This 79-nucleotide RNA from Faunimonas pinastri belongs to the Rfam family "Makes More Granules Regulator RNA (mmgR)".
The pairing is the family consensus, mapped onto this sequence.
It is annotated as a small RNA.
Lineage of the source: Bacteria > Pseudomonadota > Hyphomicrobiales > Afifellaceae > Faunimonas.
RNA sequence: GGGGCUCGCCCUUAUAGGGCGUUUCCUCCCUAGACUUAGGGCCGCCGGUGCAAACCGUGCGGCCUCUUUUUUUGUCUGU
Numbered sequence: 001g002g003g004g005c006u007c008g009c010c011c012u013u014a015u016a017g018g019g020c021g022u023u024u025c026c027u028c029c030c031u032a033g034a035c036u037u038a039g040g041g042c043c044g045c046c047g048g049u050g051c052a053a054a055c056c057g058u059g060c061g062g063c064c065u066c067u068u069u070u071u072u073u074g075u076c077u078g079u
Base pairs, nucleotide, nucleotide: 008020009019010018011017040064041063042062043061044060045059046057047056048055